Annotation:
The record is a 72-nucleotide sequence from Williamwhitmania taraxaci, which matches "tRNA" in Rfam. Its family is annotated with triplet codon-amino acid adaptor activity in the Gene Ontology. NCBI's taxonomy places the organism under Bacteria, Bacteroidota, Bacteroidia, Bacteroidales, Williamwhitmania. The family's RNA type in Rfam is transfer RNA. The family's consensus secondary structure is taken from published work.

Nucleotides: 072
Stems, first nucleotide, its partner, number of pairs: 001071003005067003010024004026042005048064005
Number, partner (000 for none) and nucleotide at each position: 001071g002070c003069c004000u005067a006066u007065g008000u009000a010024g011023c012022u013021c014000a015000g016000g017000g018000g019000u020000a021013g022012a023011g024010c025000a026042c027041u028040u029039c030038c031000u032000u033000g034000g035000u036000a037000a038030g039029g040028a041027a042026g043000a044000g045000g046000u047000c048064a049063u050062g051061g052060g053000u054000u055000c056000a057000a058000u059000u060052c061051c062050c063049a064048u065007c066006a067005u068000c069003g070002g071001c072000u